Shown here is a 181-nucleotide sequence from Geobacter metallireducens, a member of the family "6S / SsrS RNA". The sequence is in the family's curated seed alignment. E. coli 6S RNA was the first non coding RNA to be sequenced, but its function was unknown until recently.
RNA sequence: UUCUCUCUGCCAUGCGCGUCAGGCUGAUAUGCCCCAGCGGAACAUUUACGUAAGACGGGGGUUCUUUCUACCGUGGUGUGCUGCCCCAUCAUGUGGGAUUUGCCUGAAGCGGUACAGAGCCUGCCACCUGUAAGGAACUCGCUGUGAGGCCCUUACAAGCCAACGGCAUGGUGGAGGGAUU
Numbered sequence: 001u002u003c004u005c006u007c008u009g010c011c012a013u014g015c016g017c018g019u020c021a022g023g024c025u026g027a028u029a030u031g032c033c034c035c036a037g038c039g040g041a042a043c044a045u046u047u048a049c050g051u052a053a054g055a056c057g058g059g060g061g062u063u064c065u066u067u068c069u070a071c072c073g074u075g076g077u078g079u080g081c082u083g084c085c086c087c088a089u090c091a092u093g094u095g096g097g098a099u100u101u102g103c104c105u106g107a108a109g110c111g112g113u114a115c116a117g118a119g120c121c122u123g124c125c126a127c128c129u130g131u132a133a134g135g136a137a138c139u140c141g142c143u144g145u146g147a148g149g150c151c152c153u154u155a156c157a158a159g160c161c162a163a164c165g166g167c168a169u170g171g172u173g174g175a176g177g178g179a180u181u
Base pairs, nucleotide, nucleotide: 002179003178004177005176006175007174008173009172010171011170012169013168014167015166017165018164019163031150032149033148034146035144036143037142038141039140057125058124059122060121061120062119063118064117066116069114070113071112072111073110074109080103081102085097086096087095088094

Description:
Rfam classes the family as a non-coding RNA gene. Pairs were carried over by alignment from the consensus structure, which is taken from published work.